[Rfam]
RNA sequence: GUCAGGGUGUGGUCCCAGACUCCGGGAUCGGAGGUGAGGAGCUGGUCCCCGGUGUGGUCCCCGUCGGCGAGCACCCCGGCGCUGCUGUCCUCGUCGUACUUGCCCGGGGCGCGUUUGUCGAACUUGCCGUGCGCGAUCAGCAGCAGCUCCCCGACCUCCGCGCCGCGCGUGGUGAGGGUGUCCCCCGGGGUGACGUCCCGCUGGGUGAAGCGCCCGGCGAGCGCGUCCAGCGCGUCCUGGUCGGUGAGCCCGCGCAGCAGCGGGAUCUCCCGGAGCUCCGCCGGGAUGACACGGAUCUCGGAGCCGGUGGAGACGAACUCGACCCGCCCGUCCCCCAGCGUGUGCGUCAGCCGCCGGUUCACGCGGAAGGUGCCGCCCGAGGUCUGCGCCCAGGGCAGGAUCCGCAGCAGCCAGCGGGUGGAGAUCCCCUGCAUCUGCGGGGGCGUCUUGGUGGUGGUGGUCAGCUGCCGCGCGGCGGUGGUGGCGAGGCUGAGCGGGGUCGUACGG
Numbered sequence: 001g002u003c004a005g006g007g008u009g010u011g012g013u014c015c016c017a018g019a020c021u022c023c024g025g026g027a028u029c030g031g032a033g034g035u036g037a038g039g040a041g042c043u044g045g046u047c048c049c050c051g052g053u054g055u056g057g058u059c060c061c062c063g064u065c066g067g068c069g070a071g072c073a074c075c076c077c078g079g080c081g082c083u084g085c086u087g088u089c090c091u092c093g094u095c096g097u098a099c100u101u102g103c104c105c106g107g108g109g110c111g112c113g114u115u116u117g118u119c120g121a122a123c124u125u126g127c128c129g130u131g132c133g134c135g136a137u138c139a140g141c142a143g144c145a146g147c148u149c150c151c152c153g154a155c156c157u158c159c160g161c162g163c164c165g166c167g168c169g170u171g172g173u174g175a176g177g178g179u180g181u182c183c184c185c186c187g188g189g190g191u192g193a194c195g196u197c198c199c200g201c202u203g204g205g206u207g208a209a210g211c212g213c214c215c216g217g218c219g220a221g222c223g224c225g226u227c228c229a230g231c232g233c234g235u236c237c238u239g240g241u242c243g244g245u246g247a248g249c250c251c252g253c254g255c256a257g258c259a260g261c262g263g264g265a266u267c268u269c270c271c272g273g274a275g276c277u278c279c280g281c282c283g284g285g286a287u288g289a290c291a292c293g294g295a296u297c298u299c300g301g302a303g304c305c306g307g308u309g310g311a312g313a314c315g316a317a318c319u320c321g322a323c324c325c326g327c328c329c330g331u332c333c334c335c336c337a338g339c340g341u342g343u344g345c346g347u348c349a350g351c352c353g354c355c356g357g358u359u360c361a362c363g364c365g366g367a368a369g370g371u372g373c374c375g376c377c378c379g380a381g382g383u384c385u386g387c388g389c390c391c392a393g394g395g396c397a398g399g400a401u402c403c404g405c406a407g408c409a410g411c412c413a414g415c416g417g418g419u420g421g422a423g424a425u426c427c428c429c430u431g432c433a434u435c436u437g438c439g440g441g442g443g444c445g446u447c448u449u450g451g452u453g454g455u456g457g458u459g460g461u462c463a464g465c466u467g468c469c470g471c472g473c474g475g476c477g478g479u480g481g482u483g484g485c486g487a488g489g490c491u492g493a494g495c496g497g498g499g500u501c502g503u504a505c506g507g
Stems, first nucleotide, its partner, number of pairs: 006390007014382002018328001023321004028316002035313001040308001042306001045305001047303001049301004054233002058229001062225003065111002068108001077102003083096002086093001117222002123216001126213002130209001131206002134203002140197001143196002152192002157189004162184001163178002166174003234296004240290004245286001249284002252281003256277003260271001262269001329342003351379001353377001355375003360372003391431005397425001401421001403418001405416001407415001437476002440473001442471001445468002448464005478505001480501003485498001488495001
RNA: Saccharopolyspora sRNA 350
Organism: Streptomyces sp. AJS327